[Rfam]
RNA sequence: GCCUGGUGGUUCCUUGAAGCAGCUUUUCUAUGCUGGUCAUCAAGGUUUUAUUAAACAGGCAAAUAUUAAAAUCUGCGGUUUAAUGCUUGGGAGCUGCUUCUGUGCUGCUUCCACAGCCCGGCCGCAGAAACAUAC
Numbered sequence: 001g002c003c004u005g006g007u008g009g010u011u012c013c014u015u016g017a018a019g020c021a022g023c024u025u026u027u028c029u030a031u032g033c034u035g036g037u038c039a040u041c042a043a044g045g046u047u048u049u050a051u052u053a054a055a056c057a058g059g060c061a062a063a064u065a066u067u068a069a070a071a072u073c074u075g076c077g078g079u080u081u082a083a084u085g086c087u088u089g090g091g092a093g094c095u096g097c098u099u100c101u102g103u104g105c106u107g108c109u110u111c112c113a114c115a116g117c118c119c120g121g122c123c124g125c126a127g128a129a130a131c132a133u134a135c
Base pairs, nucleotide, nucleotide: 001060002059003058004057007050008049012045013044014043015042016041017040019037020035021034022033023032073127075125076124077123078122079121080120085117086116088113089112090111092109093108094107096105097104
Source information
A member of the RNA family "Small nucleolar RNA SNORA84" from Astyanax mexicanus, 135 nucleotides long. The match comes from Rfam's covariance-model search (77 bits).